[Rfam]
RNA: Small nucleolar RNA SNORA11
RNA sequence: GGGGUGUGCUCAGAGCAGGUGGCCUGAAGAAUGGCUUCUCUGUUUACAACACACCCAAGAAGAAUCUGGGACCAUUGUAAUGAGGGGCACAAGCAGUUCCCUCUCUGUGAAUGGAUCCCCUACAUGU
Numbered sequence: 001g002g003g004g005u006g007u008g009c010u011c012a013g014a015g016c017a018g019g020u021g022g023c024c025u026g027a028a029g030a031a032u033g034g035c036u037u038c039u040c041u042g043u044u045u046a047c048a049a050c051a052c053a054c055c056c057a058a059g060a061a062g063a064a065u066c067u068g069g070g071a072c073c074a075u076u077g078u079a080a081u082g083a084g085g086g087g088c089a090c091a092a093g094c095a096g097u098u099c100c101c102u103c104u105c106u107g108u109g110a111a112u113g114g115a116u117c118c119c120c121u122a123c124a125u126g127u
Stems, first nucleotide, its partner, number of pairs: 002056007013045007021037001022035003069120002076113003081109002084102004089097002